RNA: RT-15 RNA
Organism: Pseudogulbenkiania sp. NH8B
RNA sequence: CCACGCCUGCUGCCUGACCGUCACGGCGGUCAGGCCCGUGCGAUUUGAAUCUGGUUGUGCCGCUGGCCCACAAGGCCACCGCCAUGCGCUCUAGGGAUACCGCCGGCCUACGCCGGGCAGGUCUGGCGCAGUUUCCCCGCUGAUCGGCUCACGCCUUCGCCGGGGCGACGUGUAAAGCACGAACCGACG
Number, nucleotide and partner (000 for none) at each position: 001c000002c000003a000004c042005g041006c040007c000008u000009g000010c000011u000012g035013c034014c033015u032016g031017a030018c029019c028020g027021u026022c000023a000024c000025g000026g021027c020028g019029g018030u017031c016032a015033g014034g013035c012036c000037c000038g000039u000040g006041c005042g004043a000044u000045u000046u000047g000048a000049a000050u000051c000052u000053g000054g000055u182056u181057g180058u179059g178060c177061c081062g080063c000064u078065g077066g076067c075068c074069c000070a000071c000072a000073a000074g068075g067076c066077c065078a064079c000080c062081g061082c000083c000084a000085u130086g129087c128088g127089c126090u000091c000092u000093a000094g000095g124096g123097a122098u000099a000100c121101c120102g000103c116104c115105g114106g113107c112108c000109u000110a000111c000112g107113c106114c105115g104116g103117g000118c000119a000120g101121g100122u097123c096124u095125g000126g089127c088128g087129c086130a085131g000132u168133u167134u000135c165136c164137c163138c162139g161140c000141u159142g158143a157144u000145c000146g155147g154148c153149u000150c000151a000152c000153g148154c147155c146156u000157u143158c142159g141160c000161c139162g138163g137164g136165g135166c000167g133168a132169c000170g000171u000172g000173u000174a000175a000176a000177g060178c059179a058180c057181g056182a055183a000184c000185c000186g000187a000188c000189g000